Shown here is a 95-nucleotide RNA from Heyndrickxia oleronia, a member of the family "Glycine riboswitch aptamer". The source organism's lineage runs through Bacteria, Bacilli, Caryophanales, Bacillaceae and Heyndrickxia. It scores 72 bits against the family's covariance model.
[Rfam]
RNA sequence: AUGAUUACAGGGGGAGAGAUCGCUUAAGUGCGACGCCGAAGGAGCAAAUAAUAAAUAAUUAUGAAUCUCUCAGGCAAAAAGACUCUUGUAUGACG
Dot-bracket structure: .....((((((((......((((......)))).(((((..(((...(((((.....)))))....))))).))).......)))))))).....